[Rfam]
RNA sequence: GAAACGGGAACCCGGCACGGCCUCGGCCGGUCAGACCGGGAGCGCCGCCCCGCCAGGGACGGCAGGC
Numbered sequence: 001g002a003a004a005c006g007g008g009a010a011c012c013c014g015g016c017a018c019g020g021c022c023u024c025g026g027c028c029g030g031u032c033a034g035a036c037c038g039g040g041a042g043c044g045c046c047g048c049c050c051c052g053c054c055a056g057g058g059a060c061g062g063c064a065g066g067c
Stems, first nucleotide, its partner, number of pairs: 011040005018029004044063004049058003
Dot-bracket structure: ..........(((((..((((....))))......)))))...((((.(((....))).))))....
A member of the RNA family "Transposase-2 RNA" from Parafrankia sp. EAN1pec, 67 nucleotides long. Rfam's curators put it in the seed alignment.